[Rfam]
RNA: Small nucleolar RNA SNORD63
RNA sequence: GUGCUGUGAUGCUUUCUAUCAACACAUCAUUCUGACCCAAAACCGGGGAGAGAGUUUCUACCACUGAGCACA
Numbered sequence: 001g002u003g004c005u006g007u008g009a010u011g012c013u014u015u016c017u018a019u020c021a022a023c024a025c026a027u028c029a030u031u032c033u034g035a036c037c038c039a040a041a042a043c044c045g046g047g048g049a050g051a052g053a054g055u056u057u058c059u060a061c062c063a064c065u066g067a068g069c070a071c072a
Stems, first nucleotide, its partner, number of pairs: 001071004